[Rfam]
RNA sequence: UUCCACCGCCCCUCGUGGGCGUUUCCUCCCUGAACUUGGGCCGUGGCAGUUGUCAUGGCCCUUUUUUUUGUCCGUG
Numbered sequence: 001u002u003c004c005a006c007c008g009c010c011c012c013u014c015g016u017g018g019g020c021g022u023u024u025c026c027u028c029c030c031u032g033a034a035c036u037u038g039g040g041c042c043g044u045g046g047c048a049g050u051u052g053u054c055a056u057g058g059c060c061c062u063u064u065u066u067u068u069u070g071u072c073c074g075u076g
Stems, first nucleotide, its partner, number of pairs: 008020004038061009
Makes More Granules Regulator RNA (mmgR): a 76-nucleotide sequence from Iodidimonas gelatinilytica.
The family is grouped with related families in Rfam's "suhB sRNA clan".
SuhB later renamed mmgR (makes more granules regulator) was a putative non-coding RNA found multiple times in the Agrobacterium tumefaciens genome and related alpha-proteobacteria. Other non-coding RNAs uncovered in the same analysis include: speF, ybhL, metA, and serC.Several studies inSinorhizobium meliloti showed that suhB element is indeed a non-coding RNA:firstly it was detected on Northern blot and called Sm8RNA, secondly in an RNAseq study referred to as SmelC689.The mutant phenotype's (strain lacking the small RNA) cytoplasm contains higher content of polyhydroxybutyrate (PBH)storage granules than wild type strain. The sRNA is required to limit the PBH intracellular accumulation when the nitrogen-fixing Sinorhizobium meliloti is under condition of surplus carbon in relation to nitrogen. It has been renamed to mmgR. Further study confirmed that mmgR fine-tunes the regulation of PBH storage.Northern blot confirmed the expression of the sRNA in other rhizobia species. MmgR homologues were found in most alpha-proteobacteria.
Taxonomically the source falls in Iodidimonas (Bacteria, Pseudomonadati, Pseudomonadota, Iodidimonadales).